[Rfam]
RNA: TPP riboswitch aptamer (THI element)
Organism: Solidesulfovibrio carbinoliphilus
RNA sequence: GGCGUCCGAUUGGGGUGCCGCGUCCCGGGGGCGCGGCUGAGAGCAUACCCAUGGAACCUGACGCGGCUCGUACCGCCGGAGGGAAUUCGGAUGCCCGCCCG
Numbered sequence: 001g002g003c004g005u006c007c008g009a010u011u012g013g014g015g016u017g018c019c020g021c022g023u024c025c026c027g028g029g030g031g032c033g034c035g036g037c038u039g040a041g042a043g044c045a046u047a048c049c050c051a052u053g054g055a056a057c058c059u060g061a062c063g064c065g066g067c068u069c070g071u072a073c074c075g076c077c078g079g080a081g082g083g084a085a086u087u088c089g090g091a092u093g094c095c096c097g098c099c100c101g
Base pairs, nucleotide, nucleotide: 006090007089008088009087011051012050013049014048016045017037018036019035020034021033022032023031024030057082058081059080063076064075065074066073